[Rfam]
RNA: Small nucleolar RNA SNORA5
RNA sequence: UGCAGCCUUGUCAAAUUCAGCACCUGCCUCUGUCCAUGGCAAGGGCUGGCCCAAAAGGCUGCCACAGAAACACUGUGGCUCAUGGGCCCUAUGUCCUGUUUCCUGGGACCUGGGGAUAAGUUUGGCUACAGACAAUG
Numbered sequence: 001u002g003c004a005g006c007c008u009u010g011u012c013a014a015a016u017u018c019a020g021c022a023c024c025u026g027c028c029u030c031u032g033u034c035c036a037u038g039g040c041a042a043g044g045g046c047u048g049g050c051c052c053a054a055a056a057g058g059c060u061g062c063c064a065c066a067g068a069a070a071c072a073c074u075g076u077g078g079c080u081c082a083u084g085g086g087c088c089c090u091a092u093g094u095c096c097u098g099u100u101u102c103c104u105g106g107g108a109c110c111u112g113g114g115g116a117u118a119a120g121u122u123u124g125g126c127u128a129c130a131g132a133c134a135a136u137g
Stems, first nucleotide, its partner, number of pairs: 002062004018048004023043001025041004075129006087115005
Dot-bracket structure: .((((............((((.(.((((.........)))).).))))..........))))............((((((......(((((...................)))))........))))))........